Selenocysteine transfer RNA: a 94-nucleotide RNA sequence from Tuwongella immobilis. The family is grouped with related families in Rfam's "tRNA clan".
RNA sequence: GGAAGUGUUCCCGUAGCUGGUGCUCGGUGCGGUCUUCAAAACCGUCAUCGGGUGGUAUCCCCACCCGAGGUGGGUUCGAUUCCCAUCCGCUUCC
Dot-bracket structure: (((((((....(..(((....)))..).(((((.......)))))..(((((...........)))))..((((.......))))..)))))))
Numbered sequence: 001g002g003a004a005g006u007g008u009u010c011c012c013g014u015a016g017c018u019g020g021u022g023c024u025c026g027g028u029g030c031g032g033u034c035u036u037c038a039a040a041a042c043c044g045u046c047a048u049c050g051g052g053u054g055g056u057a058u059c060c061c062c063a064c065c066c067g068a069g070g071u072g073g074g075u076u077c078g079a080u081u082c083c084c085a086u087c088c089g090c091u092u093c094c
Stems, first nucleotide, its partner, number of pairs: 001094007012027001015024003029045005048068005071085004